let-7 microRNA precursor family: an 84-nucleotide RNA sequence from Catagonus wagneri.
[Rfam]
RNA sequence: ACGGGAUGAGGUAGUAGGUUGUGUGGUUUCAGGCAGUGAUGUUGCCCCUCGGAAGAUAACUAUACAACCUACUGCCUUCCCCGA
Numbered sequence: 001a002c003g004g005g006a007u008g009a010g011g012u013a014g015u016a017g018g019u020u021g022u023g024u025g026g027u028u029u030c031a032g033g034c035a036g037u038g039a040u041g042u043u044g045c046c047c048c049u050c051g052g053a054a055g056a057u058a059a060c061u062a063u064a065c066a067a068c069c070u071a072c073u074g075c076c077u078u079c080c081c082c083g084a
Stems, first nucleotide, its partner, number of pairs: 002083004008078020032046004048055002

The organism belongs to Catagonus, within Eukaryota. A search with the family's covariance model found it, with a score of 79 bits. The literature on the family includes a 2001 paper in Nat Rev Genet by Rougvie, "Control of developmental timing in animals". Rfam describes the family as follows. This family represents the microRNAs (miRNA) let-7 and mir-98. let-7 was identified from a study of developmental timing in C. elegans, and was later shown to be part of a much larger class of non-coding RNAs termed miRNAs.